[Rfam]
RNA sequence: AAAGAAACAAUAACCAGUUUCUUAUUCUAUCAAGAGUGUUGGUUAUUGCUUCUUUCCUU
Numbered sequence: 001a002a003a004g005a006a007a008c009a010a011u012a013a014c015c016a017g018u019u020u021c022u023u024a025u026u027c028u029a030u031c032a033a034g035a036g037u038g039u040u041g042g043u044u045a046u047u048g049c050u051u052c053u054u055u056c057c058u059u
Base pairs, nucleotide, nucleotide: 001055002054003053004052005051006050008048009047010046011045012044013043014042019036020035021034022033023032
RNA: Plastid-psbA-3 3UTR RNA
Organism: Eucalyptus grandis